Plastid-psbN 5UTR RNA: a 61-nucleotide sequence from Gossypium klotzschianum. NCBI's taxonomy places the organism under Eukaryota, Magnoliopsida, malvids, Malvales, Gossypium. About the family: Plastid psbN is a non-coding RNA (ncRNA) recognised in plastids.
[Rfam]
RNA sequence: UGCGAUACCCAUCAAAGGAGUUGUUCCCCAUCCAGGGGCUACCUUAUGAUAUUCCAAAUUC
Numbered sequence: 001u002g003c004g005a006u007a008c009c010c011a012u013c014a015a016a017g018g019a020g021u022u023g024u025u026c027c028c029c030a031u032c033c034a035g036g037g038g039c040u041a042c043c044u045u046a047u048g049a050u051a052u053u054c055c056a057a058a059u060u061c
Stems, first nucleotide, its partner, number of pairs: 017045002020042002023039005